Annotation
Rfam assigns this 88-nucleotide sequence to the family "RNA anti-toxin A". For this family Rfam cites "Abundance of type I toxin-antitoxin systems in bacteria: searches for new candidates and discovery of novel families" (Fozo et al., Nucleic Acids Res, 2010). Rfam links the family to the GO terms mRNA binding and negative regulation of translation. The family's consensus secondary structure was predicted with RNAalifold.
[Rfam]
RNA sequence: UAAUGGACAUAGAAAAAGGGAACUGCGCAAACAGUCCCCCCAGGUAACACCGUUUAAGACGGUAGCCGUUGCCGUUUCUUGUUUAAUU
Numbered sequence: 001u002a003a004u005g006g007a008c009a010u011a012g013a014a015a016a017a018g019g020g021a022a023c024u025g026c027g028c029a030a031a032c033a034g035u036c037c038c039c040c041c042a043g044g045u046a047a048c049a050c051c052g053u054u055u056a057a058g059a060c061g062g063u064a065g066c067c068g069u070u071g072c073c074g075u076u077u078c079u080u081g082u083u084u085a086a087u088u
Base pairs, nucleotide, nucleotide: 022035023034024033025032049063050062051061052060053059054058